The record is a 195-nucleotide RNA sequence from Klebsiella indica, which matches "Yersinia sRNA 276" in Rfam. A reference for the family is Nuss et al. (2015), "Transcriptomic profiling of Yersinia pseudotuberculosis reveals reprogramming of the Crp regulon by temperature and uncovers Crp as a master regulator of small RNAs", PLoS Genet.

RNA sequence: CACCGACAUCAGCGAUUCGUUCUGCGAACCGUGACCGACCGCCAGGUAAGCGUGCAUCCCCAGCUCUUUCAUCUGCUGUUCGCCGAUGACGCGGGUAAUGACGUUCUUGCUGUAGCUGUCGGCCAGCUGGCGCGCCUGGGAGGCCAGGUAGGCGGCAUUACAGAUAUUCGGCGGCAUAUUGCCGAGAUCUUUCGC
Dot-bracket structure: ....((.....(((.(((((...))))).)))(.(.....).)......(........)..(((..........)))((.(((((.(...((.((((.((.((....)).))....)))).))..).))))).))(((.((.(((........))).)).)))...((((((........)))))).))......

It scores 200 bits against the family's covariance model.